Background
A member of the RNA family "mir-87 microRNA precursor family" from Ascaris suum, 74 nucleotides long. It is one of the family's seed sequences. The base pairs follow the family's consensus structure, which was predicted with RNAalifold. The organism belongs to Ascaris, within Eukaryota.
RNA sequence: UGCUCGACGCCUGGAACUUAGACUCAACCUCAGUGUAAUUGCGUAGGUGAGCAAAGUUUCAGGUGUUCGAGCGC
Number, nucleotide and partner (000 for none) at each position: 001u000002g072003c071004u070005c069006g068007a067008c065009g064010c063011c062012u061013g060014g059015a000016a057017c056018u055019u054020a000021g000022a000023c051024u050025c049026a048027a000028c047029c046030u045031c000032a000033g000034u000035g000036u000037a000038a000039u000040u000041g000042c000043g000044u000045a030046g029047g028048u026049g025050a024051g023052c000053a000054a019055a018056g017057u016058u000059u014060c013061a012062g011063g010064u009065g008066u000067u007068c006069g005070a004071g003072c002073g000074c000